[Rfam]
Notes: Shown here is an 87-nucleotide RNA sequence from Gossypium davidsonii, a member of the family "MIR7486 microRNA precursor family". The family has 9 seed sequences and 10,132 matches in Rfam 15.1. A search with the family's covariance model found it, with a score of 70 bits. The base pairs follow the family's consensus structure, which was predicted with RNAalifold.
Nucleotides: 087
Stems, first nucleotide, its partner, number of pairs: 001086005007080005013074009024063011036051002
Number, partner (000 for none) and nucleotide at each position: 001086c002085u003084u004083g005082a006000a007080g008079g009078c010077g011076c012000a013074c014073u015072u016071u017070g018069c019068c020067u021066a022000c023000u024063u025062g026061g027060c028059a029058a030057c031056a032055a033054a034053g035000c036051g037050c038000g039000u040000c041000c042000a043000c044000g045000u046000a047000a048000g049000a050037g051036c052000a053034c054033u055032u056031u057030g058029u059028u060027g061026c062025c063024a064000c065000g066021u067020a068019g069018g070017c071016a072015a073014a074013g075000c076011g077010c078009g079008c080007c081000c082005u083004c084003a085002g086001g087000g